[Rfam]
RNA: Guanidine-I riboswitch aptamer
RNA sequence: UAAAAGGUUUUCUAGGGUUCCGCAGCAUAUGCUGGUCUGGUCCGAGAGAAAACGCACGAUUAGUGUACACGGCGGGACAAAAGCCCGGGAGGA
Numbered sequence: 001u002a003a004a005a006g007g008u009u010u011u012c013u014a015g016g017g018u019u020c021c022g023c024a025g026c027a028u029a030u031g032c033u034g035g036u037c038u039g040g041u042c043c044g045a046g047a048g049a050a051a052a053c054g055c056a057c058g059a060u061u062a063g064u065g066u067a068c069a070c071g072g073c074g075g076g077a078c079a080a081a082a083g084c085c086c087g088g089g090a091g092g093a
Stems, first nucleotide, its partner, number of pairs: 007053006015043002020040002022037001023034004054066004068088001070091001074086003